Shown here is a 78-nucleotide sequence from Nocardia stercoris, a member of the family "ZMP/ZTP riboswitch aptamer (pfl RNA motif)".
The literature on the family includes a 2020 paper in Cell Chem Biol by Tran et al., "Parallel Discovery Strategies Provide a Basis for Riboswitch Ligand Design".
Lineage of the source: Bacteria > Bacillati > Actinomycetota > Actinomycetes > Nocardia.

RNA sequence: GUGGUGGACCGCGACUGGCGUCCGUGGACCGACCACGAGGAAGCGCAGCACGGAGCGUCGUCCGCCUGGGUGCUCCCC
Numbered sequence: 001g002u003g004g005u006g007g008a009c010c011g012c013g014a015c016u017g018g019c020g021u022c023c024g025u026g027g028a029c030c031g032a033c034c035a036c037g038a039g040g041a042a043g044c045g046c047a048g049c050a051c052g053g054a055g056c057g058u059c060g061u062c063c064g065c066c067u068g069g070g071u072g073c074u075c076c077c078c
Base pairs, nucleotide, nucleotide: 003049005047006046010045011044012043015040016039017066018065019064020063024036025035026034027033055073056072057071058070059069